This 88-nucleotide sequence from Aegithalos caudatus belongs to the Rfam family "Epstein-Barr virus stable intronic sequence RNA 2". Rfam 15.1 lists 171 matches to the family in 47 species. It is annotated as a non-coding RNA gene. It scores 42 bits against the family's covariance model. On this family, see Moss et al., RNA Biol 2014: "RNA families in Epstein-Barr virus".
RNA sequence: GGCCUGGGGGGUCCUGCAGGACACCCCAGGCCUGGGGGGUCCUGCAGGACACCCCAGGCCUGGGGGGUCCUGCAGGACACCCCAGGCC
Numbered sequence: 001g002g003c004c005u006g007g008g009g010g011g012u013c014c015u016g017c018a019g020g021a022c023a024c025c026c027c028a029g030g031c032c033u034g035g036g037g038g039g040u041c042c043u044g045c046a047g048g049a050c051a052c053c054c055c056a057g058g059c060c061u062g063g064g065g066g067g068u069c070c071u072g073c074a075g076g077a078c079a080c081c082c083c084a085g086g087c088c
Base pairs, nucleotide, nucleotide: 001088002087003086004085005084006083007082008081009080011078012077016073017072018071019070020069021068022067024065025064026063027062028061029060030059031058032057033056034055035054036053037052